[Rfam]
RNA: T-box leader
Organism: Ruoffia halotolerans
RNA sequence: UACAUUGCUAAGAAGAGAAGAGUAAUUGACAGCACACUACAGAGAAGGGACAAAUGGUGAAAGUUCCUAAUGUUGAUGAAGGUAGCUUGGAGCAAUAAAGUGCGAAGAUUUUUUUGAGUGCUUUACGGAGAUGACACUUCGAUACAAACAAAGAGAAUGAGUAAUCAUUAAAUUAGGUGGUACCACGAUAACGUCGUCCUAUGU
Dot-bracket structure: ......((......(((.......((((((...............((((((...........))))))...))))))........)))...))...(((((((..............))))))).(((((......)))))..............(((((....)))))....((((.......(((((...)))))))))...
Numbered sequence: 001u002a003c004a005u006u007g008c009u010a011a012g013a014a015g016a017g018a019a020g021a022g023u024a025a026u027u028g029a030c031a032g033c034a035c036a037c038u039a040c041a042g043a044g045a046a047g048g049g050a051c052a053a054a055u056g057g058u059g060a061a062a063g064u065u066c067c068u069a070a071u072g073u074u075g076a077u078g079a080a081g082g083u084a085g086c087u088u089g090g091a092g093c094a095a096u097a098a099a100g101u102g103c104g105a106a107g108a109u110u111u112u113u114u115u116g117a118g119u120g121c122u123u124u125a126c127g128g129a130g131a132u133g134a135c136a137c138u139u140c141g142a143u144a145c146a147a148a149c150a151a152a153g154a155g156a157a158u159g160a161g162u163a164a165u166c167a168u169u170a171a172a173u174u175a176g177g178u179g180g181u182a183c184c185a186c187g188a189u190a191a192c193g194u195c196g197u198c199c200u201a202u203g204u
Stems, first nucleotide, its partner, number of pairs: 007093002015088003025077006046068006097124007126141005156169005174201004185197005